RNA sequence: CCAUGCGGACGACCGCAUGCGCCUUGCUUCAUCGGGGACGGCCCC
Numbered sequence: 001c002c003a004u005g006c007g008g009a010c011g012a013c014c015g016c017a018u019g020c021g022c023c024u025u026g027c028u029u030c031a032u033c034g035g036g037g038a039c040g041g042c043c044c045c
Base pairs, nucleotide, nucleotide: 002019003018004017005016006015007014008013034045035044036043037042
Background
A member of the RNA family "Guanidine-II riboswitch aptamer (mini-ykkC)" from Caballeronia novacaledonica, 45 nucleotides long. A reference for the family is Weinberg et al. (2007), "Identification of 22 candidate structured RNAs in bacteria using the CMfinder comparative genomics pipeline", Nucleic Acids Res. Lineage of the source: Bacteria > Betaproteobacteria > Burkholderiales > Burkholderiaceae > Caballeronia.